[Rfam]
RNA sequence: GGGGCUGAUUCAGGAUUCGACAGGAUCACGAAGGCUUGUGGAGCAUGUCGAGGUACGGUUUGCCUCGUUAAACAGCCGCAAAAAAAUAGUCGCAAACGACGAAAACUACGCACUAGCAGCUUAAUACCCUGCUGAGAGCGCUCCUGCCCUAGCUUCCGCUUGUAAGACGGGGAAUAACAGGGGUUCAAACCCAAACGAGAUAGCGAGGGAUUCUUUGACUAGAGAGAUGAACCGCGAAAUAGAAUUCUGGUAUGUAUUAGCAUAGCGUGUCAAUUCGCAGUGACGAUACGAGAAUAAAGAUUGACUAAACAUGUAGCGCCAUCUGUUAGACUGAUUUUGGACGCGGGUUCAAAUCCCGCCAGCUCCACCA
Numbered sequence: 001g002g003g004g005c006u007g008a009u010u011c012a013g014g015a016u017u018c019g020a021c022a023g024g025a026u027c028a029c030g031a032a033g034g035c036u037u038g039u040g041g042a043g044c045a046u047g048u049c050g051a052g053g054u055a056c057g058g059u060u061u062g063c064c065u066c067g068u069u070a071a072a073c074a075g076c077c078g079c080a081a082a083a084a085a086a087u088a089g090u091c092g093c094a095a096a097c098g099a100c101g102a103a104a105a106c107u108a109c110g111c112a113c114u115a116g117c118a119g120c121u122u123a124a125u126a127c128c129c130u131g132c133u134g135a136g137a138g139c140g141c142u143c144c145u146g147c148c149c150u151a152g153c154u155u156c157c158g159c160u161u162g163u164a165a166g167a168c169g170g171g172g173a174a175u176a177a178c179a180g181g182g183g184u185u186c187a188a189a190c191c192c193a194a195a196c197g198a199g200a201u202a203g204c205g206a207g208g209g210a211u212u213c214u215u216u217g218a219c220u221a222g223a224g225a226g227a228u229g230a231a232c233c234g235c236g237a238a239a240u241a242g243a244a245u246u247c248u249g250g251u252a253u254g255u256a257u258u259a260g261c262a263u264a265g266c267g268u269g270u271c272a273a274u275u276c277g278c279a280g281u282g283a284c285g286a287u288a289c290g291a292g293a294a295u296a297a298a299g300a301u302u303g304a305c306u307a308a309a310c311a312u313g314u315a316g317c318g319c320c321a322u323c324u325g326u327u328a329g330a331c332u333g334a335u336u337u338u339g340g341a342c343g344c345g346g347g348u349u350c351a352a353a354u355c356c357c358g359c360c361a362g363c364u365c366c367a368c369c370a
Stems, first nucleotide, its partner, number of pairs: 001366007021339008033327003038322004043317001044313005049067005054080001056078005113136002116132004140184006147172004153166003159199005204234002216252002219249001254289005261282003265278003269305007343359005
Rfam assigns this 370-nucleotide RNA from Photobacterium aquimaris to the family "transfer-messenger RNA". The family's RNA type in Rfam is non-coding RNA gene. NCBI's taxonomy places the organism under Bacteria, Pseudomonadota, Gammaproteobacteria, Vibrionaceae, Photobacterium. The family is grouped with related families in Rfam's "tRNA clan". Rfam's curators write: Bacterial tmRNA, also known as 10Sa RNA or SsrA, is named for its dual tRNA and mRNA-like properties. On this family, see Williams and Bartel, RNA 1996: "Phylogenetic analysis of tmRNA secondary structure".